The family of this 143-nucleotide RNA sequence from Malus domestica is "Small nucleolar RNA snoR74". Gene Ontology terms of the family: nucleolus and RNA processing. The base pairs follow the family's consensus structure, which was predicted with WAR.

RNA sequence: AAAAAAGCAGGGCUUAGUUACCUUCUGUGAACUGGGCUCCCGUAAACUUCAGGAAAAUCAAUUGCAUUGUUUUUGGGUGAACCUCUGUACUUUGCAUCUGUUGCAUUUUUGUGAUUGAAGGUUCAGUUAAUGACGCCACAUUU
Numbered sequence: 001a002a003a004a005a006a007g008c009a010g011g012g013c014u015u016a017g018u019u020a021c022c023u024u025c026u027g028u029g030a031a032c033u034g035g036g037c038u039c040c041c042g043u044a045a046a047c048u049u050c051a052g053g054a055a056a057a058u059c060a061a062u063u064g065c066a067u068u069g070u071u072u073u074u075g076g077g078u079g080a081a082c083c084u085c086u087g088u089a090c091u092u093u094g095c096a097u098c099u100g101u102u103g104c105a106u107u108u109u110u111g112u113g114a115u116u117g118a119a120g121g122u123u124c125a126g127u128u129a130a131u132g133a134c135g136c137c138a139c140a141u142u143u
Stems, first nucleotide, its partner, number of pairs: 005049003011038002014035004065135001067133005078125007